[Rfam]
RNA sequence: CCCUCCGAAGUUUCCCUCAGGAUAGCUGGUGCUCGAUACGUGGUUACGUCUGGUAAAGCGAAUGAUUGGCGGGCUCGGGGGAGAAGCUCCCUCGACCGACUCUCAAACUUUAAACGGGCGAGGAGGGCCGCCAUCUUAAUUGUGGCUGGCUUUCAGGGGUGCUGGCUGACCCCACCAACAUGAGUGCCAAGUGGGCCAUUUUUGGUAAGCAGAACUGGCGAGGCGGGAUGAACCGAAAGCCGGGUUACGGUGCCUAACUACGCGCUAACCUAGAUCCCACAAAGGGUGUUGAUUGAUUAAGACAGCAGGACGGUGGUCAUGGAAGUCGAAAUCCGCUAAGGAGUGUGUAACAACUCACCUGCCGAAUCAAUUAGCCCCGAAAAUGGAUGGCGCUCAAGCGCGUGACCUAUACCCGGCCGCACCCGGCUGCUGGUGAGCCGGUGCGAGUAGGAGGGCGCGGUGGGAUGCAUCGAAGCGUGCGCGUGAGCGCGCGUGGAGCUCCCGAUCGCUGCAGAU
Numbered sequence: 001c002c003c004u005c006c007g008a009a010g011u012u013u014c015c016c017u018c019a020g021g022a023u024a025g026c027u028g029g030u031g032c033u034c035g036a037u038a039c040g041u042g043g044u045u046a047c048g049u050c051u052g053g054u055a056a057a058g059c060g061a062a063u064g065a066u067u068g069g070c071g072g073g074c075u076c077g078g079g080g081g082a083g084a085a086g087c088u089c090c091c092u093c094g095a096c097c098g099a100c101u102c103u104c105a106a107a108c109u110u111u112a113a114a115c116g117g118g119c120g121a122g123g124a125g126g127g128c129c130g131c132c133a134u135c136u137u138a139a140u141u142g143u144g145g146c147u148g149g150c151u152u153u154c155a156g157g158g159g160u161g162c163u164g165g166c167u168g169a170c171c172c173c174a175c176c177a178a179c180a181u182g183a184g185u186g187c188c189a190a191g192u193g194g195g196c197c198a199u200u201u202u203u204g205g206u207a208a209g210c211a212g213a214a215c216u217g218g219c220g221a222g223g224c225g226g227g228a229u230g231a232a233c234c235g236a237a238a239g240c241c242g243g244g245u246u247a248c249g250g251u252g253c254c255u256a257a258c259u260a261c262g263c264g265c266u267a268a269c270c271u272a273g274a275u276c277c278c279a280c281a282a283a284g285g286g287u288g289u290u291g292a293u294u295g296a297u298u299a300a301g302a303c304a305g306c307a308g309g310a311c312g313g314u315g316g317u318c319a320u321g322g323a324a325g326u327c328g329a330a331a332u333c334c335g336c337u338a339a340g341g342a343g344u345g346u347g348u349a350a351c352a353a354c355u356c357a358c359c360u361g362c363c364g365a366a367u368c369a370a371u372u373a374g375c376c377c378c379g380a381a382a383a384u385g386g387a388u389g390g391c392g393c394u395c396a397a398g399c400g401c402g403u404g405a406c407c408u409a410u411a412c413c414c415g416g417c418c419g420c421a422c423c424c425g426g427c428u429g430c431u432g433g434u435g436a437g438c439c440g441g442u443g444c445g446a447g448u449a450g451g452a453g454g455g456c457g458c459g460g461u462g463g464g465a466u467g468c469a470u471c472g473a474a475g476c477g478u479g480c481g482c483g484u485g486a487g488c489g490c491g492c493g494u495g496g497a498g499c500u501c502c503c504g505a506u507c508g509c510u511g512c513a514g515a516u
Stems, first nucleotide, its partner, number of pairs: 001455006011024001013022003027189007044123002047120005056111001057109002063105003068100001070098003075095006082088001125171002128168001130166004195219004200214005224235003239417005245411001249407003258404001260403001263400003284378003288375010305362005311335003317329002336340001341356001345354002418445006425439003456511001458508004462503004467499002475494002480489003
Source information
The family of this 516-nucleotide part of an RNA from Closterium sp. NIES-67 is "Eukaryotic large subunit ribosomal RNA".